[Rfam]
RNA: BsrF
RNA sequence: GCGAUGAGCUGAGUUGUGUAAGCCGAAGAACAUUCCUUUUGGAACACACAAUGUGGAGUGUGGUUCUUCGCCUCAAUACGCGAGAGACGCCAGUAUAACUGGCGUC
Numbered sequence: 001g002c003g004a005u006g007a008g009c010u011g012a013g014u015u016g017u018g019u020a021a022g023c024c025g026a027a028g029a030a031c032a033u034u035c036c037u038u039u040u041g042g043a044a045c046a047c048a049c050a051a052u053g054u055g056g057a058g059u060g061u062g063g064u065u066c067u068u069c070g071c072c073u074c075a076a077u078a079c080g081c082g083a084g085a086g087a088c089g090c091c092a093g094u095a096u097a098a099c100u101g102g103c104g105u106c
Stems, first nucleotide, its partner, number of pairs: 014076003018072001024070008034043002045062002048059002086106009